RpsF leader: an 86-nucleotide RNA sequence from Psychromonas sp. Urea-02u-13.
Rfam describes the family as follows. Conserved and widely distributed to many bacterial species RNA structure.
Rfam links the family to the GO terms protein binding and negative regulation of translation.
Lineage of the source: Bacteria > Pseudomonadati > Gammaproteobacteria > Alteromonadales > Psychromonas.
RNA sequence: UCAGCCAUCUUUUUUGUUCCUUGCUUCUAUUUGGUACGGCUGAUCCAAGUUCAGAAGCUACUAACCCGUAAGGAGCGAUUUUUAUA
Dot-bracket structure: ...............(((((((((((((..(.(...........).).....))))))...........)))))))..........
Numbered sequence: 001u002c003a004g005c006c007a008u009c010u011u012u013u014u015u016g017u018u019c020c021u022u023g024c025u026u027c028u029a030u031u032u033g034g035u036a037c038g039g040c041u042g043a044u045c046c047a048a049g050u051u052c053a054g055a056a057g058c059u060a061c062u063a064a065c066c067c068g069u070a071a072g073g074a075g076c077g078a079u080u081u082u083u084a085u086a
Stems, first nucleotide, its partner, number of pairs: 016076007023058006031047001033045001
On this family, see Babina et al., RNA 2015: "An S6:S18 complex inhibits translation of E. coli rpsF". The family's RNA type in Rfam is cis-regulatory leader.